[Rfam]
RNA sequence: GAAUCAUCGAGAGCGGUGUAGGGACGGGCCCUGUGAUACCGCGGCAACCAGUUCGAUACGUCGAACCAGGUGCCAAUGCCCGAGCGAUGGCGGCGGGAGGGACGAUGU
Numbered sequence: 001g002a003a004u005c006a007u008c009g010a011g012a013g014c015g016g017u018g019u020a021g022g023g024a025c026g027g028g029c030c031c032u033g034u035g036a037u038a039c040c041g042c043g044g045c046a047a048c049c050a051g052u053u054c055g056a057u058a059c060g061u062c063g064a065a066c067c068a069g070g071u072g073c074c075a076a077u078g079c080c081c082g083a084g085c086g087a088u089g090g091c092g093g094c095g096g097g098a099g100g101g102a103c104g105a106u107g108u
Stems, first nucleotide, its partner, number of pairs: 001108001003106003007102002013042005021031003025078001043074004048070002051066003079097004